[Rfam]
RNA sequence: UCGUCAGUGAGGUACAUCCUUACCUGUCCCGCCCCAAAAUGGGCGGGGCCGCCGUGAUGAGCGAGAGCGCAUGAGCCGUGAUUAAUUCUCUCGGCGGCGGGUCUGCAACACCCGCCUGCUCUGUCUGAG
Numbered sequence: 001u002c003g004u005c006a007g008u009g010a011g012g013u014a015c016a017u018c019c020u021u022a023c024c025u026g027u028c029c030c031g032c033c034c035c036a037a038a039a040u041g042g043g044c045g046g047g048g049c050c051g052c053c054g055u056g057a058u059g060a061g062c063g064a065g066a067g068c069g070c071a072u073g074a075g076c077c078g079u080g081a082u083u084a085a086u087u088c089u090c091u092c093g094g095c096g097g098c099g100g101g102u103c104u105g106c107a108a109c110a111c112c113c114g115c116c117u118g119c120u121c122u123g124u125c126u127g128a129g
Base pairs, nucleotide, nucleotide: 024051026049028047029046030045031044032043033042073090074089078086079084096116097115098114099113100112
RNA: U8 small nucleolar RNA
Organism: Alligator sinensis